[Rfam]
RNA sequence: GAGCGUAAUUCGGGAAACUGGAUUGCUGUCCGGACGCGGGGGCGGUGCCCGCCGCCUCCACCAAAACUACAGGACACCCAGACCUGGGGUUCGUUGAAGCAAUUCCCGAUGAGGCUAAUCGGGCACCAUUGUGGAGAGCAGUCCUGUGGUUUUGAUGGGGGCGAAAUAGGAUCGACGGCUGCGAAGAAAGAGACACGCGCUCCGGUGAGGCACACCGUUAUCGUCCAAAAACUGUAAUUGUCGCAGCAAAUGACAACCACUUUGAGGCCCGCGCCCUCGCGGCGUAG
Numbered sequence: 001g002a003g004c005g006u007a008a009u010u011c012g013g014g015a016a017a018c019u020g021g022a023u024u025g026c027u028g029u030c031c032g033g034a035c036g037c038g039g040g041g042g043c044g045g046u047g048c049c050c051g052c053c054g055c056c057u058c059c060a061c062c063a064a065a066a067c068u069a070c071a072g073g074a075c076a077c078c079c080a081g082a083c084c085u086g087g088g089g090u091u092c093g094u095u096g097a098a099g100c101a102a103u104u105c106c107c108g109a110u111g112a113g114g115c116u117a118a119u120c121g122g123g124c125a126c127c128a129u130u131g132u133g134g135a136g137a138g139c140a141g142u143c144c145u146g147u148g149g150u151u152u153u154g155a156u157g158g159g160g161g162c163g164a165a166a167u168a169g170g171a172u173c174g175a176c177g178g179c180u181g182c183g184a185a186g187a188a189a190g191a192g193a194c195a196c197g198c199g200c201u202c203c204g205g206u207g208a209g210g211c212a213c214a215c216c217g218u219u220a221u222c223g224u225c226c227a228a229a230a231a232c233u234g235u236a237a238u239u240g241u242c243g244c245a246g247c248a249a250a251u252g253a254c255a256a257c258c259a260c261u262u263u264g265a266g267g268c269c270c271g272c273g274c275c276c277u278c279g280c281g282g283c284g285u286a287g
Base pairs, nucleotide, nucleotide: 001202002201003200004199005198026181028179030178031177032176036052037051038050039049040048053163054162055161056160057159058158059157203217204216205215206214
Shown here is a 287-nucleotide RNA sequence, a member of the family "permuted transfer-messenger RNA". The match comes from Rfam's covariance-model search (99 bits). Pairs were carried over by alignment from the consensus structure, which is taken from published work. About the family: Bacterial tmRNA, also known as 10Sa RNA or SsrA, is named for its dual tRNA and mRNA-like properties. Its role is to liberate the mRNA from a stalled ribosome. To accomplish this part of the tmRNA is used as a reading frame that ends in a translation stop signal. The broken mRNA is replaced in the ribosome by the tmRNA and translation of the tmRNA leads to addition of a proteolysis tag to the incomplete protein enabling recognition by a protease.